[Rfam]
RNA sequence: CUUCGGGGGAGUAACCGCCCUGCACCAGCAGGGGGCAACAUCAACAUCCUCGGCCAUUCGGCUGUGGUGUUGCCGGCAGGGCCUGGGCUUUAGCUUGGUGAGACUCGAACGCACCGUCUCCGGCGAGGGCAGGGGAGGGUCCGUUCGUGUAUAUCCGCCCUCUGAGUC
Dot-bracket structure: ..................(((........))).((((((((((.......(((((....)))))))))))))))(((((((..............................................................................))))..)))
Numbered sequence: 001c002u003u004c005g006g007g008g009g010a011g012u013a014a015c016c017g018c019c020c021u022g023c024a025c026c027a028g029c030a031g032g033g034g035g036c037a038a039c040a041u042c043a044a045c046a047u048c049c050u051c052g053g054c055c056a057u058u059c060g061g062c063u064g065u066g067g068u069g070u071u072g073c074c075g076g077c078a079g080g081g082c083c084u085g086g087g088c089u090u091u092a093g094c095u096u097g098g099u100g101a102g103a104c105u106c107g108a109a110c111g112c113a114c115c116g117u118c119u120c121c122g123g124c125g126a127g128g129g130c131a132g133g134g135g136a137g138g139g140u141c142c143g144u145u146c147g148u149g150u151a152u153a154u155c156c157g158c159c160c161u162c163u164g165a166g167u168c
Stems, first nucleotide, its partner, number of pairs: 019032003034074010051064005075168003078163004
Shown here is a 168-nucleotide RNA from Ferrimonas sediminicola, a member of the family "Manganese Mn2+ riboswitch aptamer (yybP-ykoY)". Lineage of the source: Bacteria > Pseudomonadati > Pseudomonadota > Alteromonadales > Ferrimonas. The match comes from Rfam's covariance-model search (52 bits).